[Rfam]
Nucleotides: 148
Stems, first nucleotide, its partner, number of pairs: 011132004018035006036127006046055002056112003064083001066081004086106004
Number, partner (000 for none) and nucleotide at each position: 001000c002000g003000g004000g005000c006000g007000c008000g009000a010000c011132c012131g013130c014129c015000g016000a017000a018035u019034c020033g021032c022031c023030g024000c025000g026000c027000u028000g029000a030023c031022g032021g033020u034019g035018a036127a037126c038125c039124g040123g041122g042000g043000a044000a045000c046055c047054a048000g049000g050000c051000a052000a053000c054047u055046g056112g057111g058110g059000c060000g061000a062000a063000u064083c065000c066081c067080g068079c069078g070000u071000u072000g073000g074000a075000g076000a077000a078069c079068g080067c081066g082000a083064g084000u085000a086106g087105g088104g089103c090000g091000a092000u093000g094000c095000u096000u097000c098000u099000u100000c101000c102000c103089g104088c105087c106086c107000g108000a109000g110058c111057c112056c113000g114000u115000c116000a117000g118000c119000u120000a121000a122041c123040c124039c125038g126037g127036u128000a129014g130013g131012c132011g133000g134000u135000u136000c137000g138000a139000g140000g141000a142000a143000g144000a145000a146000g147000g148000a